[Rfam]
RNA sequence: UCGAGACGACAUGAUUGGAUGCCCCUGGAGAUGGAUAAACUGGCCGCGGACCGUCCUUGGGCGCAGCCCCCGACCGGUCCGCCAUGUUCAGCCAGCAGCCGCUGCAACCACAGGGAG
Number, nucleotide and partner (000 for none) at each position: 001u000002c000003g000004a000005g000006a000007c000008g000009a000010c000011a000012u000013g000014a000015u000016u000017g000018g000019a000020u000021g000022c000023c000024c000025c000026u000027g000028g000029a000030g000031a000032u000033g000034g000035a000036u000037a000038a000039a000040c000041u000042g000043g000044c000045c000046g000047c000048g000049g079050a078051c077052c076053g075054u000055c000056c000057u073058u072059g071060g070061g069062c000063g000064c000065a000066g000067c000068c000069c061070c060071c059072g058073a057074c000075c053076g052077g051078u050079c049080c000081g000082c000083c000084a000085u000086g000087u000088u000089c000090a000091g000092c000093c104094a103095g102096c101097a000098g000099c000100c000101g096102c095103u094104g093105c000106a000107a000108c000109c000110a000111c000112a000113g000114g000115g000116a000117g000
Notes: This 117-nucleotide sequence from Streptomyces oceani belongs to the Rfam family "Streptomyces-metK RNA".